[Rfam]
RNA sequence: AAAGUCGACUAGACAGUCGCUGCUUCCUUAAUCUAAAAAGGAAGGAGAGGAAAGUCCGGGCUCUUAGGGUUAGGGUGCCAGGUAACGCCUGGGAAGCGAGAGCUUACGACUAGUGCAACAGAAAAAAAACCGCUUAUGUAAAUAUUUUAAAUAUUAACUAUUUACAAGCAAGGGUGAAAAGGUGUGGUAAAAGCACACCGCGCUUAUUGGUAACAAUUUGUGGCAUUGUAAACUCCACCCGGAGCAAGGCCAAAUAGGGUUUUUUUAAGUAUAACCCAUACUAAACCCGGGUAGGCUGCUUGAAUUAAUAAGUAAUUAUUAGUCUAGAUGAAUGACUGUCCACGACAGAACCCGGCUUAUAGGUUGACUUUCUUA
Numbered sequence: 001a002a003a004g005u006c007g008a009c010u011a012g013a014c015a016g017u018c019g020c021u022g023c024u025u026c027c028u029u030a031a032u033c034u035a036a037a038a039a040g041g042a043a044g045g046a047g048a049g050g051a052a053a054g055u056c057c058g059g060g061c062u063c064u065u066a067g068g069g070u071u072a073g074g075g076u077g078c079c080a081g082g083u084a085a086c087g088c089c090u091g092g093g094a095a096g097c098g099a100g101a102g103c104u105u106a107c108g109a110c111u112a113g114u115g116c117a118a119c120a121g122a123a124a125a126a127a128a129a130c131c132g133c134u135u136a137u138g139u140a141a142a143u144a145u146u147u148u149a150a151a152u153a154u155u156a157a158c159u160a161u162u163u164a165c166a167a168g169c170a171a172g173g174g175u176g177a178a179a180a181g182g183u184g185u186g187g188u189a190a191a192a193g194c195a196c197a198c199c200g201c202g203c204u205u206a207u208u209g210g211u212a213a214c215a216a217u218u219u220g221u222g223g224c225a226u227u228g229u230a231a232a233c234u235c236c237a238c239c240c241g242g243a244g245c246a247a248g249g250c251c252a253a254a255u256a257g258g259g260u261u262u263u264u265u266u267a268a269g270u271a272u273a274a275c276c277c278a279u280a281c282u283a284a285a286c287c288c289g290g291g292u293a294g295g296c297u298g299c300u301u302g303a304a305u306u307a308a309u310a311a312g313u314a315a316u317u318a319u320u321a322g323u324c325u326a327g328a329u330g331a332a333u334g335a336c337u338g339u340c341c342a343c344g345a346c347a348g349a350a351c352c353c354g355g356c357u358u359a360u361a362g363g364u365u366g367a368c369u370u371u372c373u374u375a
Base pairs, nucleotide, nucleotide: 001371002370003369004368005367006366007365008364009363010362011360012340013339014338015337016336017335018334020047021046023044024043025042026041027040028039052358053357054356056355057354058353059352060351061244062243063242064241068277069276071274073240074239075238076237077236078092079091080090081089082088093107094105095104096103097102108235109234113233114232115229116228117227130173131172132169133168134167137164138163140161181199182198183197184196185195186194200224201222202221203220206217207216208215209214248297249296250295251294258288259287261285262284263283268282269281270280271279272278304323305322306321307320308319309318310317311316
A member of the RNA family "Bacterial RNase P class A" from Candidatus Pantoea edessiphila, 375 nucleotides long. It scores 318 bits against the family's covariance model.